The family of this 150-nucleotide RNA sequence from Penicillium nalgiovense is "A. fumigatus sRNA Afu_254". The literature on the family includes a 2008 paper in Nucleic Acids Res by Jochl et al., "Small ncRNA transcriptome analysis from Aspergillus fumigatus suggests a novel mechanism for regulation of protein synthesis". The family's RNA type in Rfam is small RNA. The source organism's lineage runs through Eukaryota, Dikarya, Eurotiomycetes, Eurotiomycetidae and Penicillium. Rfam 15.1 lists 185 matches to the family in 142 species.
RNA sequence: AUCCAAAGCAAACACUACUCUCAAGCCACUUUUUCAAGGUUCUUUACCUACCACAUCUAUAUCCAUCAUGUCUCCCUGCGCCUGCAACUGCUGCUCCGGCGAGUGCAACUCCUGCUCUUGCGCCAGCUGCAAGGUAUGUCAUUACUUGCU
Number, nucleotide and partner (000 for none) at each position: 001a000002u000003c000004c000005a000006a000007a000008g000009c000010a000011a000012a000013c000014a000015c000016u000017a000018c000019u000020c000021u000022c000023a000024a000025g000026c000027c000028a000029c000030u000031u000032u000033u000034u000035c000036a000037a000038g000039g000040u000041u000042c000043u000044u000045u000046a000047c000048c000049u000050a000051c000052c000053a000054c000055a000056u000057c000058u000059a000060u000061a000062u000063c000064c000065a000066u000067c000068a000069u000070g000071u000072c000073u000074c000075c000076c000077u101078g100079c099080g000081c000082c000083u000084g094085c093086a092087a000088c000089u000090g000091c000092u086093g085094c084095u000096c000097c000098g000099g079100c078101g077102a000103g000104u000105g130106c129107a128108a000109c000110u000111c000112c000113u000114g121115c120116u000117c000118u000119u000120g115121c114122g000123c000124c000125a000126g000127c000128u107129g106130c105131a000132a000133g000134g000135u000136a000137u000138g000139u000140c000141a000142u000143u000144a000145c000146u000147u000148g000149c000150u000